Glycine riboswitch aptamer: a 109-nucleotide sequence from Marivibrio halodurans.

RNA sequence: UGCCGCGCCGUGGGAGAGCGCGUCUCCGGCCGGAUGGAUAUCCGGCCGGGCCGCCGCCGAAGGAGCAACCGCCCCGGAAUCUCUCAGGCAAAGGGACCGCGUCGCGCGA
Numbered sequence: 001u002g003c004c005g006c007g008c009c010g011u012g013g014g015a016g017a018g019c020g021c022g023u024c025u026c027c028g029g030c031c032g033g034a035u036g037g038a039u040a041u042c043c044g045g046c047c048g049g050g051c052c053g054c055c056g057c058c059g060a061a062g063g064a065g066c067a068a069c070c071g072c073c074c075c076g077g078a079a080u081c082u083c084u085c086a087g088g089c090a091a092a093g094g095g096a097c098c099g100c101g102u103c104g105c106g107c108g109a
Stems, first nucleotide, its partner, number of pairs: 006104002009101005020054003056089003059085002063083003069077002
Source information: It scores 54 bits against the family's covariance model. The base pairs follow the family's consensus structure. The organism belongs to Marivibrio, within Bacteria.